[Rfam]
RNA sequence: AUCUUAUUAAGAACUAUGGAGAGAAACAACUCUGCGAAAUAGUAGCAACCUAUUAGAUUAGGUGCUUAAAUUAAGGGGAAACCAACAAUAAGAC
Numbered sequence: 001a002u003c004u005u006a007u008u009a010a011g012a013a014c015u016a017u018g019g020a021g022a023g024a025a026a027c028a029a030c031u032c033u034g035c036g037a038a039a040u041a042g043u044a045g046c047a048a049c050c051u052a053u054u055a056g057a058u059u060a061g062g063u064g065c066u067u068a069a070a071u072u073a074a075g076g077g078g079a080a081a082c083c084a085a086c087a088a089u090a091a092g093a094c
Stems, first nucleotide, its partner, number of pairs: 002093007013043005021032003028072002044066004049062002052058002075083002
The family of this 94-nucleotide RNA sequence from Spiroplasma chinense is "SAM riboswitch aptamer (S box leader)". The match comes from Rfam's covariance-model search (49 bits). From the family's description: The SAM riboswitch is found upstream of a number of genes which code for proteins involved in methionine or cysteine biosynthesis in Gram-positive bacteria.